About this RNA:
This 73-nucleotide sequence from Pteropus alecto belongs to the Rfam family "tRNA". About the family: Transfer RNA (tRNA) molecules are approximately 80 nucleotides in length. The match comes from Rfam's covariance-model search (58 bits). The family's RNA type in Rfam is transfer RNA. The base pairs follow the family's consensus structure, which is taken from published work.

RNA sequence: GGUUCCAUAGUGCGGCGGUUAGCACAUCUGCUUUACACGCAGAAGGUCCUGGGUUUGUGCCCCAGUGGAGCCA
Number, nucleotide and partner (000 for none) at each position: 001g072002g071003u070004u069005c068006c067007a066008u000009a000010g025011u024012g023013c022014g000015g000016c000017g000018g000019u000020u000021a000022g013023c012024a011025c010026a000027u043028c042029u041030g040031c039032u000033u000034u000035a000036c000037a000038c000039g031040c030041a029042g028043a027044a000045g000046g000047u000048c000049c065050u064051g063052g062053g061054u000055u000056u000057g000058u000059g000060c000061c053062c052063c051064a050065g049066u007067g006068g005069a004070g003071c002072c001073a000